[Rfam]
RNA sequence: AUAUAAGCAAAAGUAACUUUUUUAGAUUCAUCGGAAAAUGGAUGUAUUUAGUCUAUAUUUUAGACUAAAUACAUCCAUUUUCCAAUGAAUCUCAAAAAGCUACUUUUGCUUAUAU
Numbered sequence: 001a002u003a004u005a006a007g008c009a010a011a012a013g014u015a016a017c018u019u020u021u022u023u024a025g026a027u028u029c030a031u032c033g034g035a036a037a038a039u040g041g042a043u044g045u046a047u048u049u050a051g052u053c054u055a056u057a058u059u060u061u062a063g064a065c066u067a068a069a070u071a072c073a074u075c076c077a078u079u080u081u082c083c084a085a086u087g088a089a090u091c092u093c094a095a096a097a098a099g100c101u102a103c104u105u106u107u108g109c110u111u112a113u114a115u
Stems, first nucleotide, its partner, number of pairs: 002114006009107005015101001017099006024092002027089005033083012049067004
This 115-nucleotide RNA sequence from Trifolium medium belongs to the Rfam family "MIR2593 microRNA precursor family".
The base pairs follow the family's consensus structure, which was predicted with RNAalifold.